[Rfam]
RNA sequence: GCACUUCAGCAAACCCUGUCCUUCCGUCUUCGUGCUGGUCAUGGGUUAAAAAGUGCUAAAGUAAAUCAGAGUCAGUCCAGACCAGCCUUUUCUCUUUAUUGAAGCUCGUCUCUACAGACUCUGAAACAUCU
Numbered sequence: 001g002c003a004c005u006u007c008a009g010c011a012a013a014c015c016c017u018g019u020c021c022u023u024c025c026g027u028c029u030u031c032g033u034g035c036u037g038g039u040c041a042u043g044g045g046u047u048a049a050a051a052a053g054u055g056c057u058a059a060a061g062u063a064a065a066u067c068a069g070a071g072u073c074a075g076u077c078c079a080g081a082c083c084a085g086c087c088u089u090u091u092c093u094c095u096u097u098a099u100u101g102a103a104g105c106u107c108g109u110c111u112c113u114a115c116a117g118a119c120u121c122u123g124a125a126a127c128a129u130c131u
Stems, first nucleotide, its partner, number of pairs: 001056005012046001014044002017041002020038002066124006079111004084106003093102002